Shown here is a 182-nucleotide RNA from Todus mexicanus, a member of the family "Small Cajal body specific RNA 16". The base pairs follow the family's consensus structure, which was predicted with RNAfold. On this family, see Darzacq et al., EMBO J 2002: "Cajal body-specific small nuclear RNAs: a novel class of 2'-O-methylation and pseudouridylation guide RNAs". The family's RNA type in Rfam is small Cajal body RNA. scaRNAs are a specific class of small nuclear RNAs which localise to the Cajal bodies and guide the modification of RNA polymerase II transcribed spliceosomal RNAs U1, U2, U4, U5 and U12. ACA47 belongs to the H/ACA box class of guide RNAs as it has the predicted hairpin-hinge-hairpin-tail structure, the conserved H/ACA-box motifs and is found associated with GAR1.
RNA sequence: CAGGGCUGGGGGGAAGGGCUGCUGGGCAGCGGGGCCAGCGAGCCCAGCCUGGUACCAGCCAGCCUCCCCCGCGCCCCAGAGCAUCUCCCCGGCGGGCCCCACGCUGGCGCCUGUCCCAUGCAGUAACAGGUGUGAGCAUCCGUGCAGCCUCUGGAUGGUCAUGUAUGAUACUGCGCACAACA
Numbered sequence: 001c002a003g004g005g006c007u008g009g010g011g012g013g014a015a016g017g018g019c020u021g022c023u024g025g026g027c028a029g030c031g032g033g034g035c036c037a038g039c040g041a042g043c044c045c046a047g048c049c050u051g052g053u054a055c056c057a058g059c060c061a062g063c064c065u066c067c068c069c070c071g072c073g074c075c076c077c078a079g080a081g082c083a084u085c086u087c088c089c090c091g092g093c094g095g096g097c098c099c100c101a102c103g104c105u106g107g108c109g110c111c112u113g114u115c116c117c118a119u120g121c122a123g124u125a126a127c128a129g130g131u132g133u134g135a136g137c138a139u140c141c142g143u144g145c146a147g148c149c150u151c152u153g154g155a156u157g158g159u160c161a162u163g164u165a166u167g168a169u170a171c172u173g174c175g176c177a178c179a180a181c182a
Stems, first nucleotide, its partner, number of pairs: 003076004010070003017064004021059004026055001029048002032045001034043002088109001090107001091105004119175007127167002133161003137157004144151001
Rfam links the family to the GO terms nucleolus and RNA processing. The organism belongs to Todus, within Eukaryota.